RNA sequence: UUUUUUUCCUUGACAGUGUUCAAGAAAAUAA
Number, nucleotide and partner (000 for none) at each position: 001u031002u030003u000004u028005u027006u026007u025008c000009c024010u023011u022012g021013a020014c018015a000016g000017u000018g014019u000020u013021c012022a011023a010024g009025a007026a006027a005028a004029u000030a002031a001